[Rfam]
RNA sequence: AUCGUUCAUCCCUUCUGAAGUAGAGAAGGGACGGAAGUAGGGAGAGAGCCCGAAGGAACGCGCC
Numbered sequence: 001a002u003c004g005u006u007c008a009u010c011c012c013u014u015c016u017g018a019a020g021u022a023g024a025g026a027a028g029g030g031a032c033g034g035a036a037g038u039a040g041g042g043a044g045a046g047a048g049c050c051c052g053a054a055g056g057a058a059c060g061c062g063c064c
Stems, first nucleotide, its partner, number of pairs: 003060005009031008034061001040051003
RNA: Glutamine riboswitch aptamer (glnA leader)